[Rfam]
RNA sequence: GAGUGUGCCUGUCUGACGAGUCUAACCCGAGUAUCGGGGAAGGCAGAGGGAAACCGAUAUGACCGCAGUCUUACGACCAGGGUCACCGUGUUCAAGCGCGGGGAGUCAGGCGGGCACGACCCGAAACCGGAUGAUCUAGGCAUGGGCAGGGUGAAGCGUGGCGAAAGCCACGUGGAGGCCCGCUAGCGUUGGUGUCCUACAAUACCCUCGCGUGACCUAUGUCUAGGGGUGAAAGGCCCAUCGAAUCCGGAAACAGCUGGUU
Numbered sequence: 001g002a003g004u005g006u007g008c009c010u011g012u013c014u015g016a017c018g019a020g021u022c023u024a025a026c027c028c029g030a031g032u033a034u035c036g037g038g039g040a041a042g043g044c045a046g047a048g049g050g051a052a053a054c055c056g057a058u059a060u061g062a063c064c065g066c067a068g069u070c071u072u073a074c075g076a077c078c079a080g081g082g083u084c085a086c087c088g089u090g091u092u093c094a095a096g097c098g099c100g101g102g103g104a105g106u107c108a109g110g111c112g113g114g115c116a117c118g119a120c121c122c123g124a125a126a127c128c129g130g131a132u133g134a135u136c137u138a139g140g141c142a143u144g145g146g147c148a149g150g151g152u153g154a155a156g157c158g159u160g161g162c163g164a165a166a167g168c169c170a171c172g173u174g175g176a177g178g179c180c181c182g183c184u185a186g187c188g189u190u191g192g193u194g195u196c197c198u199a200c201a202a203u204a205c206c207c208u209c210g211c212g213u214g215a216c217c218u219a220u221g222u223c224u225a226g227g228g229g230u231g232a233a234a235g236g237c238c239c240a241u242c243g244a245a246u247c248c249g250g251a252a253a254c255a256g257c258u259g260g261u262u
Stems, first nucleotide, its partner, number of pairs: 005117013020044004026038004048055002061084004068077003087100004120260002123257001127250006136226011147214001149181004156173007186211003191207002194205002228238003

A member of the RNA family "Archaeal large subunit ribosomal RNA" from Natronosalvus rutilus, 262 nucleotides of a longer RNA. The base pairs follow the family's consensus structure, which is taken from published work. Gene Ontology terms of the family: ribosome and structural constituent of ribosome. It scores 2831 bits against the family's covariance model.